Shown here is a 72-nucleotide RNA from Williamsia sp. 1138, a member of the family "tRNA". Rfam links the family to the GO term triplet codon-amino acid adaptor activity. Lineage of the source: Bacteria > Actinomycetes > Mycobacteriales > Nocardiaceae > Williamsia. It is annotated as a transfer RNA. A search with the family's covariance model found it, with a score of 72 bits.
RNA sequence: GCGCGUAUAGCUCAGCGGUAGAGCUCUGGUCUUACACACCAGCGGUCGGGGGUUCAAAUCCCUCUGCGCGCA
Numbered sequence: 001g002c003g004c005g006u007a008u009a010g011c012u013c014a015g016c017g018g019u020a021g022a023g024c025u026c027u028g029g030u031c032u033u034a035c036a037c038a039c040c041a042g043c044g045g046u047c048g049g050g051g052g053u054u055c056a057a058a059u060c061c062c063u064c065u066g067c068g069c070g071c072a
Base pairs, nucleotide, nucleotide: 001071002070003069004068005067006066007065010024011023012022013021026042027041028040029039030038048064049063050062051061052060